[Rfam]
RNA sequence: GCCGAGCUCAGUAGCGAGAGCUUGUGACCCAAGUGGGGGCAUUAAGGUGGCGUGGAUGUUUGGUGCGGUCUCUGUUGCUUGCGCUGGCCUGCCCGUUCCAAGUUGGUAGUGGCCCGUGAGGCUCAGGCGGAAGCCUUGGGCUUCUCUGGACCUGAAGUGGCAGGAACGGCGUGAGGCUGGUUUCACAGAGCAGCGAUCACUGCCCGCUUCCAAUGGUGGAAGGAUCACAGGCCGCUGCACCAUGGGCCCGCUUGUGUAGGGCCCAGAGCCCCUCUACAACAGACCGCCAUCUUU
Numbered sequence: 001g002c003c004g005a006g007c008u009c010a011g012u013a014g015c016g017a018g019a020g021c022u023u024g025u026g027a028c029c030c031a032a033g034u035g036g037g038g039g040c041a042u043u044a045a046g047g048u049g050g051c052g053u054g055g056a057u058g059u060u061u062g063g064u065g066c067g068g069u070c071u072c073u074g075u076u077g078c079u080u081g082c083g084c085u086g087g088c089c090u091g092c093c094c095g096u097u098c099c100a101a102g103u104u105g106g107u108a109g110u111g112g113c114c115c116g117u118g119a120g121g122c123u124c125a126g127g128c129g130g131a132a133g134c135c136u137u138g139g140g141c142u143u144c145u146c147u148g149g150a151c152c153u154g155a156a157g158u159g160g161c162a163g164g165a166a167c168g169g170c171g172u173g174a175g176g177c178u179g180g181u182u183u184c185a186c187a188g189a190g191c192a193g194c195g196a197u198c199a200c201u202g203c204c205c206g207c208u209u210c211c212a213a214u215g216g217u218g219g220a221a222g223g224a225u226c227a228c229a230g231g232c233c234g235c236u237g238c239a240c241c242a243u244g245g246g247c248c249c250g251c252u253u254g255u256g257u258a259g260g261g262c263c264c265a266g267a268g269c270c271c272c273u274c275u276a277c278a279a280c281a282g283a284c285c286g287c288c289a290u291c292u293u294u
Base pairs, nucleotide, nucleotide: 001040002039003038004023005022006021007020008019009018028037029036030035044293045292046291047290048289049288050287051286052285054284057281058280059278061276062273063272065269066268067249068248070246071245072244076239077238079237085234086233087232088231089230090229091228093223094222096221097220098219099218100217102214103213104212105211106210108208109207110206111151113149114148116146118144119143120142121141122140123139124138125137126135127134128133152157159204160203161202162201163200168197170195171194172193177188178187179186
Plant signal recognition particle RNA: a 294-nucleotide RNA sequence from Digitaria exilis.
It is annotated as a non-coding RNA gene.
Its family is annotated with SRP-dependent cotranslational protein targeting to membrane, signal sequence recognition and signal recognition particle, endoplasmic reticulum targeting in the Gene Ontology.
Taxonomically the source falls in Digitaria (Eukaryota, Euphyllophyta, Magnoliopsida, Petrosaviidae).